[Rfam]
RNA sequence: CCGUGCUAGGCGGGGAGGUAGCGGUGCCCUGUACUCGCAAUCCGCUCAAGCGAGGCUGAAUCCCUUCUCGAGGCUAGUCUGCUUUAGGGUCUGCCUUAAGUAAGUGGUGUUGACGUUUUGGUCCUACGCAAUGAAAAUCCAUGAACCCUGUCAGGUCCGGAAGGAAGCAGCAGUAAGUGGAACCUUUCAUGUGCCGUAGGGUUGCCUGAACCGAGCUAACUGCUUAAGUAACGCCUGGGGCAACUAGUCGACAGAAGGUGCACGG
Numbered sequence: 001c002c003g004u005g006c007u008a009g010g011c012g013g014g015g016a017g018g019u020a021g022c023g024g025u026g027c028c029c030u031g032u033a034c035u036c037g038c039a040a041u042c043c044g045c046u047c048a049a050g051c052g053a054g055g056c057u058g059a060a061u062c063c064c065u066u067c068u069c070g071a072g073g074c075u076a077g078u079c080u081g082c083u084u085u086a087g088g089g090u091c092u093g094c095c096u097u098a099a100g101u102a103a104g105u106g107g108u109g110u111u112g113a114c115g116u117u118u119u120g121g122u123c124c125u126a127c128g129c130a131a132u133g134a135a136a137a138u139c140c141a142u143g144a145a146c147c148c149u150g151u152c153a154g155g156u157c158c159g160g161a162a163g164g165a166a167g168c169a170g171c172a173g174u175a176a177g178u179g180g181a182a183c184c185u186u187u188c189a190u191g192u193g194c195c196g197u198a199g200g201g202u203u204g205c206c207u208g209a210a211c212c213g214a215g216c217u218a219a220c221u222g223c224u225u226a227a228g229u230a231a232c233g234c235c236u237g238g239g240g241c242a243a244c245u246a247g248u249c250g251a252c253a254g255a256a257g258g259u260g261c262a263c264g265g
Stems, first nucleotide, its partner, number of pairs: 001265006009057003012030004017025001019023001034054005063258006072249005080242009092230002096227006104220002106217003115211004120206003123200006129191002132189005138181005148173004156165003
Dot-bracket structure: ((((((..(((((((.(.(...).).))))...(((((...........)))))))).....((((((...(((((...(((((((((...((..((((((..(((((......((((.(((((((((((.(((((.(((((.....((((....(((....)))....))))...)))))...)))))))...))))))...))).))))...))).)).)))))).))...)))))))))..)))))...)))))).))))))

Shown here is a 265-nucleotide RNA sequence from Priestia filamentosa, a member of the family "Bacterial large signal recognition particle RNA". NCBI's taxonomy places the organism under Bacteria, Bacillati, Bacilli, Caryophanales, Priestia. Rfam's curators write: The signal recognition particle (SRP) is a universally conserved ribonucleoprotein involved in the co-translational targeting of proteins to membranes. It is annotated as a non-coding RNA gene. Rfam links the family to the GO terms signal recognition particle, plasma membrane targeting and SRP-dependent cotranslational protein targeting to membrane, signal sequence recognition.